[Rfam]
Nucleotides: 084
Base pairs, nucleotide, nucleotide: 013068014067015066016065017064018063022059023058024057025056026055027054028053033052034051035050036049
Number, partner (000 for none) and nucleotide at each position: 001000g002000u003000g004000g005000u006000u007000c008000u009000g010000a011000a012000c013068c014067u015066g016065g017064c018063a019000u020000a021000u022059a023058g024057u025056g026055u027054a028053g029000a030000c031000a032000u033052c034051u035050g036049u037000g038000u039000c040000c041000c042000a043000a044000c045000a046000a047000g048000u049036a050035c051034a052033g053028c054027u055026a056025c057024a058023u059022u060000u061000c062000a063018u064017g065016c066015u067014g068013g069000g070000u071000u072000u073000c074000a075000g076000a077000a078000c079000a080000a081000c082000u083000u084000u
The record is an 84-nucleotide sequence from Triplophysa tibetana, which matches "mir-221 microRNA precursor family" in Rfam.
The family has 72 seed sequences and 1,797 matches in Rfam 15.1.
It scores 57 bits against the family's covariance model.
Rfam links the family to the GO terms miRNA-mediated post-transcriptional gene silencing and RISC complex.
A reference for the family is Yao et al. (2008), "MicroRNA profile of Marek's disease virus-transformed T-cell line MSB-1: predominance of virus-encoded microRNAs", J Virol.